[Rfam]
Nucleotides: 090
Base pairs, nucleotide, nucleotide: 006085007084008083009082010081011080012079013078020031021030022029023028033070034069035068036066037065040064041063042062046057047056
Number, partner (000 for none) and nucleotide at each position: 001000a002000u003000g004000a005000a006085a007084a008083a009082g010081a011080u012079g013078a014000g015000a016000g017000a018000g019000a020031c021030c022029u023028u024000u025000a026000a027000a028023a029022a030021g031020g032000c033070g034069c035068c036066g037065a038000a039000g040064g041063g042062g043000u044000a045000a046057a047056c048000c049000g050000a051000g052000c053000c054000a055000g056047g057046u058000g059000a060000a061000a062042c063041u064040c065037u066036c067000a068035g069034g070033c071000a072000a073000a074000a075000g076000g077000a078013u079012c080011a081010u082009c083008u084007u085006u086000g087000g088000a089000c090000c